[Rfam]
RNA sequence: GGAAUAGAGGGAGCGUCGUUAAUGGCGUAAAUCUCUAAUGGAGAAGUAGAGGAACAACGAUGAGGCGAGAAAUCGUUUCAGUUGCCAUUUUUCCCAUUGGCGAUUCGAUUGUUGCUCGUCCACAC
Numbered sequence: 001g002g003a004a005u006a007g008a009g010g011g012a013g014c015g016u017c018g019u020u021a022a023u024g025g026c027g028u029a030a031a032u033c034u035c036u037a038a039u040g041g042a043g044a045a046g047u048a049g050a051g052g053a054a055c056a057a058c059g060a061u062g063a064g065g066c067g068a069g070a071a072a073u074c075g076u077u078u079c080a081g082u083u084g085c086c087a088u089u090u091u092u093c094c095c096a097u098u099g100g101c102g103a104u105u106c107g108a109u110u111g112u113u114g115c116u117c118g119u120c121c122a123c124a125c
Base pairs, nucleotide, nucleotide: 006036007035008034009033010032013028014027015026016025017024018023064121065120067117068116069115072109073108074107075106081104082103083102084101085100086099087098089096
Dot-bracket structure: .....(((((..((((((....))))))...)))))...........................((.(((..((((.....(((((((.(......).))))))).)))).....)))..))....